RNA sequence: UCCACCCGGGUCUGUGGUUGCGGGCGCAAGCCCUAGUCCAUGGUAGGCGCGGCCGAAUGGACCCACGUAAGCACGCCGGCGAAAGCCGAUGUGUGAGCAUGGCGCGCCUUAGGGGUAAGUCGUACCGUCCGUUCAGGGUCGCAUCCCGCGAUCCCGGGCGAGAGGGCCGGUAGUGAGAUGACAUCAAGCGGAAGCCCCCGUACGCGAGUGUGGGGCCAAAGACCAGGUCAGCCGGGUGGA
Number, nucleotide and partner (000 for none) at each position: 001u240002c239003c238004a237005c236006c235007c234008g233009g232010g000011u000012c231013u230014g229015u225016g224017g223018u222019u221020g000021c000022g000023g000024g000025c000026g000027c000028a000029a000030g000031c000032c000033c000034u000035a000036g000037u000038c000039c000040a211041u210042g209043g053044u000045a109046g108047g107048c106049g105050c104051g103052g000053c043054c000055g000056a000057a000058u000059g000060g000061a000062c102063c101064c000065a000066c000067g000068u000069a000070a094071g000072c000073a000074c000075g000076c088077c000078g000079g000080c000081g000082a000083a000084a000085g000086c000087c000088g076089a000090u000091g000092u000093g000094u070095g000096a000097g000098c000099a000100u218101g063102g062103c051104g050105c049106g048107c047108c046109u045110u000111a000112g000113g000114g000115g000116u000117a000118a000119g000120u000121c204122g203123u202124a201125c200126c160127g159128u158129c157130c156131g000132u000133u000134c000135a000136g000137g000138g000139u000140c000141g000142c000143a000144u000145c000146c000147c000148g000149c000150g000151a000152u000153c000154c000155c000156g130157g129158g128159c127160g126161a000162g000163a000164g197165g196166g195167c194168c000169g000170g000171u000172a000173g189174u188175g000176a000177g000178a000179u186180g185181a000182c000183a000184u000185c180186a179187a000188g174189c173190g000191g000192a000193a000194g167195c166196c165197c164198c000199c000200g125201u124202a123203c122204g121205c000206g000207a000208g000209u042210g041211u040212g000213g000214g000215g000216c000217c000218a100219a000220a000221g019222a018223c017224c016225a015226g000227g000228u000229c014230a013231g012232c009233c008234g007235g006236g005237u004238g003239g002240a001

The family of this 240-nucleotide RNA sequence is "raiA RNA".